A member of the RNA family "DUF805b RNA", 37 nucleotides long. The sequence is in the family's curated seed alignment. The base pairs follow the family's consensus structure, which is taken from published work.
Nucleotides: 037
Stems, first nucleotide, its partner, number of pairs: 003020003010036003
Number, partner (000 for none) and nucleotide at each position: 001000a002000a003020g004019g005018a006000g007000a008000u009000a010036a011035c012034c013000g014000a015000a016000a017000a018005u019004c020003c021000a022000a023000a024000a025000a026000a027000a028000a029000g030000a031000g032000u033000a034012g035011g036010u037000a